[Rfam]
RNA sequence: GCUUAAGGUAUGAAAAAACUCCAUAUAUUUCUGGUAAUAGGGUCCGGAAGUUUCUACUUACAUCCCGUAAAGAUGUAAACUAUGGCAAAAGAGCCUUAUCUU
Numbered sequence: 001g002c003u004u005a006a007g008g009u010a011u012g013a014a015a016a017a018a019c020u021c022c023a024u025a026u027a028u029u030u031c032u033g034g035u036a037a038u039a040g041g042g043u044c045c046g047g048a049a050g051u052u053u054c055u056a057c058u059u060a061c062a063u064c065c066c067g068u069a070a071a072g073a074u075g076u077a078a079a080c081u082a083u084g085g086c087a088a089a090a091g092a093g094c095c096u097u098a099u100c101u102u
Stems, first nucleotide, its partner, number of pairs: 021085005029049006058078007
This 102-nucleotide RNA sequence from Erysipelothrix sp. Poltava belongs to the Rfam family "Purine riboswitch aptamer". The family's consensus secondary structure is taken from published work. The match comes from Rfam's covariance-model search (73 bits). Rfam's curators write: Riboswitches are metabolite binding domains within certain messenger RNAs that serve as precision sensors for their corresponding targets.